[Rfam]
RNA sequence: AUGGUGGACGCAUGGCAGGAGCAUCUUCAUGGUUCUUGAGAUUUGAGAUCAGCAUAAGGUGUACUAUAUGAGGAUGGAGAAGAAUGCCUGGGUUGUUCCUUCUAUUCCUCCUCAAGAACUCUUCAGUUUGUCCAUGCCUUUCUUGGCCUAAUUCCCUGGAUUCCAUAGUCUCCGGGUAGCUUAGAGAGGUAUGAGCAAAUCGGCAAGUCAUGAAUCGGCGAUGGUGAGCUCCGGCAGGAGUCUA
Numbered sequence: 001a002u003g004g005u006g007g008a009c010g011c012a013u014g015g016c017a018g019g020a021g022c023a024u025c026u027u028c029a030u031g032g033u034u035c036u037u038g039a040g041a042u043u044u045g046a047g048a049u050c051a052g053c054a055u056a057a058g059g060u061g062u063a064c065u066a067u068a069u070g071a072g073g074a075u076g077g078a079g080a081a082g083a084a085u086g087c088c089u090g091g092g093u094u095g096u097u098c099c100u101u102c103u104a105u106u107c108c109u110c111c112u113c114a115a116g117a118a119c120u121c122u123u124c125a126g127u128u129u130g131u132c133c134a135u136g137c138c139u140u141u142c143u144u145g146g147c148c149u150a151a152u153u154c155c156c157u158g159g160a161u162u163c164c165a166u167a168g169u170c171u172c173c174g175g176g177u178a179g180c181u182u183a184g185a186g187a188g189g190u191a192u193g194a195g196c197a198a199a200u201c202g203g204c205a206a207g208u209c210a211u212g213a214a215u216c217g218g219c220g221a222u223g224g225u226g227a228g229c230u231c232c233g234g235c236a237g238g239a240g241u242c243u244a
Base pairs, nucleotide, nucleotide: 066105067104118200120198123195137189138188139187140186141185142184143183228241229240230239231238
RNA: Early nodulin 40